[Rfam]
RNA: Selenocysteine transfer RNA
Organism: bacterium I07
Nucleotides: 095
Stems, first nucleotide, its partner, number of pairs: 001095007012027002015024003029045005048069007072086004
Number, partner (000 for none) and nucleotide at each position: 001095g002094g003093g004092g005091g006090c007089g008000c009000a010000u011000g012027g013026g014000u015024c016023c017022c018000u019000g020000g021000u022017g023016g024015g025000c026013u027012c028000c029045g030044c031043g032042g033041a034000c035000u036000u037000c038000a039000a040000a041033u042032c043031c044030g045029u046000u047000g048069u049068c050067c051066c052065g053064u054063a055000c056000u057000g058000a059000g060000a061000g062000g063054u064053g065052c066051g067050g068049g069048g070000g071000g072086u073085g074084g075083g076000u077000u078000c079000g080000a081000u082000u083075c084074c085073c086072a087000c088000a089007c090006g091005c092004c093003c094002c095001c